Record summary: Z30 small nucleolar RNA: a 98-nucleotide RNA sequence from Cyprinodon variegatus. Rfam classes the family as a C/D-box small nucleolar RNA. The base pairs follow the family's consensus structure, which was predicted with PFOLD. The family has 20 seed sequences and 802 matches in Rfam 15.1.
RNA sequence: CUGCAGUGAUGAUAUGUAGAUGUGACUGACCUAGAAUUGCUGGUCUCUGGAUCAGUUCUGUCUAGGAAAUGACAUUUGUUAAUCUUCUCUCUGAGCAG
Numbered sequence: 001c002u003g004c005a006g007u008g009a010u011g012a013u014a015u016g017u018a019g020a021u022g023u024g025a026c027u028g029a030c031c032u033a034g035a036a037u038u039g040c041u042g043g044u045c046u047c048u049g050g051a052u053c054a055g056u057u058c059u060g061u062c063u064a065g066g067a068a069a070u071g072a073c074a075u076u077u078g079u080u081a082a083u084c085u086u087c088u089c090u091c092u093g094a095g096c097a098g
Base pairs, nucleotide, nucleotide: 003096004095039056040055041054042053